Annotation: A member of the RNA family "Plastid-rpl20 3UTR RNA" from Hordeum vulgare, 79 nucleotides long. Lineage of the source: Eukaryota > Mesangiospermae > Petrosaviidae > Triticodae > Hordeum vulgare. Rfam 15.1 lists 587 matches to the family in 315 species. From the family's description: Plastid rpl20 is a non-coding RNA (ncRNA) recognised in plastids. It was found in the three prime untranslated region (3UTR) of rpl20 gene, it presence in the 3UTR region sugest a role in transcript maduration.
RNA sequence: AUGAAUUCCUUGGAGAGGCAACUCCGAAAAGAUACAAUAAAUUAAGAUUAAGUGGUAGGAAUCAACGAGCUGGAUUACU
Dot-bracket structure: .....((..((((((......)))))).)).................................(.(......).)....
It is annotated as a cis-regulatory element.